[Rfam]
RNA sequence: GUUCCAGACACAUCUCAUCUGAUAUACAAUAUUUUCUUAAAUUGUAUAAAGAGAAAUUAUUGUACAUCGGAUGAGCUGUGUCUGGGAU
Numbered sequence: 001g002u003u004c005c006a007g008a009c010a011c012a013u014c015u016c017a018u019c020u021g022a023u024a025u026a027c028a029a030u031a032u033u034u035u036c037u038u039a040a041a042u043u044g045u046a047u048a049a050a051g052a053g054a055a056a057u058u059a060u061u062g063u064a065c066a067u068c069g070g071a072u073g074a075g076c077u078g079u080g081u082c083u084g085g086g087a088u
Stems, first nucleotide, its partner, number of pairs: 002087011014075010025064007033056006
RNA: mir-944 microRNA precursor family
Organism: Homo sapiens